This 158-nucleotide sequence from Glycine max belongs to the Rfam family "MIR4371 microRNA precursor family". The family has 4 seed sequences and 321 matches in Rfam 15.1. Taxonomically the source falls in Glycine subgen. Soja (Eukaryota, Streptophytina, rosids, Fabaceae). The match comes from Rfam's covariance-model search (136 bits). Its Rfam clan is "MIR4387 microRNA precursor clan".
RNA sequence: UCGUUAAGCGAUGACAUGACACACGAAGUGUCAUGUCAUCACACCUUGUCACGGACACCUCAUUGUCACGCCAUCACCUUCGAUGACAUGGCAAUGACGUGUUAGUAACAAGACGUGAUGACGUGACACUUCGUUUAUCAUAACAUCGUUUAACGAAA
Number, nucleotide and partner (000 for none) at each position: 001u156002c155003g154004u153005u152006a151007a150008g149009c148010g147011a146012u145013g144014a000015c000016a141017u140018g139019a138020c000021a136022c000023a134024c133025g132026a131027a130028g129029u128030g127031u126032c125033a124034u123035g122036u121037c120038a119039u118040c117041a116042c115043a000044c000045c112046u111047u000048g109049u108050c000051a106052c105053g000054g103055a102056c101057a100058c099059c000060u000061c000062a000063u000064u000065g000066u000067c000068a000069c000070g087071c000072c085073a084074u083075c000076a000077c000078c000079u000080u000081c000082g000083a074084u073085g072086a000087c070088a000089u000090g000091g000092c000093a000094a000095u000096g000097a000098c000099g058100u057101g056102u055103u054104a000105g052106u051107a000108a049109c048110a000111a046112g045113a000114c000115g042116u041117g040118a039119u038120g037121a036122c035123g034124u033125g032126a031127c030128a029129c028130u027131u026132c025133g024134u023135u000136u021137a000138u019139c018140a017141u016142a000143a000144c013145a012146u011147c010148g009149u008150u007151u006152a005153a004154c003155g002156a001157a000158a000